[Rfam]
RNA sequence: GAGGGACGGCCCCUCAAAAUCGGUAUUUAGGUACUGAUUUUAAAUCACCUUAUGGUGCUGUUAACUAAAAAUAAUGGUGCUGAGCGAUAAGGAAAAGGCAAAACUUAAGAUUUUGUCAGA
Numbered sequence: 001g002a003g004g005g006a007c008g009g010c011c012c013c014u015c016a017a018a019a020u021c022g023g024u025a026u027u028u029a030g031g032u033a034c035u036g037a038u039u040u041u042a043a044a045u046c047a048c049c050u051u052a053u054g055g056u057g058c059u060g061u062u063a064a065c066u067a068a069a070a071a072u073a074a075u076g077g078u079g080c081u082g083a084g085c086g087a088u089a090a091g092g093a094a095a096a097g098g099c100a101a102a103a104c105u106u107a108a109g110a111u112u113u114u115g116u117c118a119g120a
Base pairs, nucleotide, nucleotide: 001015002014003013004012005011016041017040018039019038020037021036023034024033025032026031045120046119048092049091050090051089052088053087054081055080057078058077059076061074062073063072097117098116099115100114101113102112